[Rfam]
RNA sequence: UCAGUCGGCCGGACGGCCGCUCCCGCUACGGUCGAAAGGCUGCGGGAGAGGAAAGUCCGGGCUCCAUCGACAUACGGUGCCGGAUAACGUCCGGCGGGGGCGACCCCAGGGACAGUGCCACAGAGAACGAACCGCCCCCUCUCCGGAGGAGGUAAGGGUGAAAAGGUGCGGUAAGAGCGCACCGCGGGUCCGGCAACGGAACCGGCAUGGCAAACCACACCGGGAGCAAAACCGAAUAGGGACGGCAACGCGGGAUGUUCGCGCAAGCGAUAACUCCGCAGGGCGAUGUCAGGCUCGCCGUCCGGGUAGGUUGCUCGAGGCAACGUGCAAACGUUGUCCCAGAGGAAUGGCCGUCACGUAUCGUUUGCGCAAGCAGGCGGUGCCCUACAAAACCCGGCUUACAGGCUGGCUGAUGCU
Number, nucleotide and partner (000 for none) at each position: 001u413002c412003a411004g410005u409006c408007g407008g406009c405010c404011g402012g355013a354014c353015g352016g351017c350018c349019g000020c048021u047022c046023c045024c044025g043026c042027u000028a000029c000030g000031g000032u000033c000034g000035a000036a000037a000038g000039g000040c000041u000042g026043c025044g024045g023046g022047a021048g020049a000050g000051g000052a000053a400054a399055g398056u000057c397058c396059g395060g394061g393062c226063u225064c224065c223066a000067u000068c000069g000070a000071c000072a000073u000074a000075c222076g221077g220078u219079g218080c094081c093082g092083g091084a090085u000086a000087a000088c000089g000090u084091c083092c082093g081094g080095c109096g107097g106098g105099g104100g000101c000102g000103a000104c099105c098106c097107c096108a000109g095110g000111g216112a000113c000114a000115g215116u214117g211118c210119c209120a000121c000122a000123g000124a000125g000126a000127a000128c000129g000130a000131a000132c157133c156134g153135c152136c151137c000138c149139c148140u147141c146142u000143c000144c000145g000146g141147a140148g139149g138150a000151g136152g135153u134154a000155a000156g133157g132158g000159u000160g000161a000162a000163a000164a000165g183166g182167u181168g180169c179170g178171g000172u000173a000174a000175g000176a000177g000178c170179g169180c168181a167182c166183c165184g206185c204186g203187g202188g000189u200190c199191c198192g197193g000194c000195a000196a000197c192198g191199g190200a189201a000202c187203c186204g185205g000206c184207a000208u000209g119210g118211c117212a000213a000214a116215c115216c111217a000218c079219a078220c077221c076222g075223g065224g064225a063226g062227c000228a000229a000230a312231a311232c310233c309234g000235a000236a000237u000238a000239g000240g303241g302242a301243c300244g299245g298246c000247a000248a000249c000250g000251c000252g000253g000254g000255a000256u000257g000258u000259u000260c000261g000262c000263g000264c000265a000266a000267g000268c000269g000270a000271u000272a000273a000274c000275u000276c000277c000278g000279c000280a000281g296282g295283g294284c293285g000286a000287u000288g000289u000290c000291a000292g000293g284294c283295u282296c281297g000298c245299c244300g243301u242302c241303c240304g000305g000306g000307u000308a000309g233310g232311u231312u230313g000314c000315u000316c000317g000318a000319g338320g337321c336322a335323a334324c333325g332326u331327g000328c000329a000330a000331a326332c325333g324334u323335u322336g321337u320338c319339c000340c000341a000342g000343a000344g000345g000346a000347a000348u000349g018350g017351c016352c015353g014354u013355c012356a000357c000358g000359u000360a000361u000362c000363g000364u000365u000366u000367g000368c000369g000370c000371a000372a000373g000374c000375a000376g000377g000378c000379g000380g000381u000382g000383c000384c000385c000386u000387a000388c000389a000390a000391a000392a000393c061394c060395c059396g058397g057398c055399u054400u053401a000402c011403a000404g010405g009406c008407u007408g006409g005410c004411u003412g002413a001414u000415g000416c000417u000

This 417-nucleotide RNA sequence from Bradyrhizobium sediminis belongs to the Rfam family "Bacterial RNase P class A".
It is annotated as a ribozyme.
It scores 297 bits against the family's covariance model.
Rfam describes the family as follows. Ribonuclease P (RNase P) is a ubiquitous endoribonuclease, found in archaea, bacteria and eukarya as well as chloroplasts and mitochondria. Its best characterised activity is the generation of mature 5'-ends of tRNAs by cleaving the 5'-leader elements of precursor-tRNAs. Cellular RNase Ps are ribonucleoproteins. RNA from bacterial RNase Ps retains its catalytic activity in the absence of the protein subunit, i.e. it is a ribozyme.